[Rfam]
RNA: mir-9256 microRNA precursor family
Organism: Pipistrellus kuhlii
RNA sequence: UCAUACACUGAGUGGCCAGAUGAUGAUGAUCUCUGAACGCAUCAUAAUCUGGCCACUCAGUGUCUCU
Numbered sequence: 001u002c003a004u005a006c007a008c009u010g011a012g013u014g015g016c017c018a019g020a021u022g023a024u025g026a027u028g029a030u031c032u033c034u035g036a037a038c039g040c041a042u043c044a045u046a047a048u049c050u051g052g053c054c055a056c057u058c059a060g061u062g063u064c065u066c067u
Base pairs, nucleotide, nucleotide: 005063006062007061008060009059010058011057012056013055014054015053016052017051019049020048021047023045024044025043026042027041028040